The family of this 105-nucleotide sequence from Prunus armeniaca is "MIR6274 microRNA precursor family". Rfam 15.1 lists 342 matches to the family in 8 species. Pairs were carried over by alignment from the consensus structure, which was predicted with RNAalifold. Rfam links the family to the GO terms miRNA-mediated post-transcriptional gene silencing and RISC complex. Taxonomically the source falls in Prunus (Eukaryota, Tracheophyta, rosids, Amygdaloideae).

RNA sequence: GAAUAUCAUUGAUUUGCUAUCUUCGACUAAUAACACAAUGACACGUAAAAAAAUUAUCUUACGUGUCAUUGUGUUAUUGACCAAAAAUAACAACAAGUGAUAUUU
Numbered sequence: 001g002a003a004u005a006u007c008a009u010u011g012a013u014u015u016g017c018u019a020u021c022u023u024c025g026a027c028u029a030a031u032a033a034c035a036c037a038a039u040g041a042c043a044c045g046u047a048a049a050a051a052a053a054u055u056a057u058c059u060u061a062c063g064u065g066u067c068a069u070u071g072u073g074u075u076a077u078u079g080a081c082c083a084a085a086a087a088u089a090a091c092a093a094c095a096a097g098u099g100a101u102a103u104u105u
Stems, first nucleotide, its partner, number of pairs: 002104004014093003018089003022085002025082001028079021050057001